Notes: Shown here is a 94-nucleotide RNA sequence from Cervus elaphus, a member of the family "Small nucleolar RNA SNORD116". Taxonomically the source falls in Cervus elaphus (Eukaryota, Vertebrata, Teleostomi, Artiodactyla). Rfam links the family to the GO terms RNA processing and nucleolus. The family's RNA type in Rfam is C/D-box small nucleolar RNA.
[Rfam]
RNA sequence: GGAUCAGUGAUGACAACUUUAAUAUGCAUUCCUUGGAAAAUCUGAACAAAAUGAGUGAGAACUCACUACCAUCUCCUCAUCAACACUGAGCUCU
Dot-bracket structure: (((.(.....................(((((.(((...........)))...)))))................................).)))